This 105-nucleotide sequence from Advenella mimigardefordensis belongs to the Rfam family "Glycine riboswitch aptamer".
RNA sequence: UAAAUUGUCGUGGGAGAGAGCAGCAGGCGGCCACCGGCCCGUCACGUUGCCACCGAAGGCGCAAUUCGCCCGGAAUCGCUCAGGUCCAUGUACCGCACAAUCACC
Numbered sequence: 001u002a003a004a005u006u007g008u009c010g011u012g013g014g015a016g017a018g019a020g021c022a023g024c025a026g027g028c029g030g031c032c033a034c035c036g037g038c039c040c041g042u043c044a045c046g047u048u049g050c051c052a053c054c055g056a057a058g059g060c061g062c063a064a065u066u067c068g069c070c071c072g073g074a075a076u077c078g079c080u081c082a083g084g085u086c087c088a089u090g091u092a093c094c095g096c097a098c099a100a101u102c103a104c105c
Stems, first nucleotide, its partner, number of pairs: 005100004010096004020050004052085003055081002059079003066072001